The family of this 105-nucleotide RNA sequence from Plutella xylostella is "mir-8517 microRNA precursor family".
[Rfam]
RNA sequence: UUACUGGACGCUUUAGCUAUUGAACUGUUUUGUCCCUCUCUGUCAAAGAACAAAUUGUUCUCUGUCAGACAGUGACAGAACAGUUUAGCUAAAGCGUGCAGUAAC
Numbered sequence: 001u002u003a004c005u006g007g008a009c010g011c012u013u014u015a016g017c018u019a020u021u022g023a024a025c026u027g028u029u030u031u032g033u034c035c036c037u038c039u040c041u042g043u044c045a046a047a048g049a050a051c052a053a054a055u056u057g058u059u060c061u062c063u064g065u066c067a068g069a070c071a072g073u074g075a076c077a078g079a080a081c082a083g084u085u086u087a088g089c090u091a092a093a094g095c096g097u098g099c100a101g102u103a104a105c
Stems, first nucleotide, its partner, number of pairs: 001104006011094009023085006029069004034064001049059004
Gene Ontology terms of the family: RISC complex and miRNA-mediated post-transcriptional gene silencing. Pairs were carried over by alignment from the consensus structure, which was predicted with RNAalifold.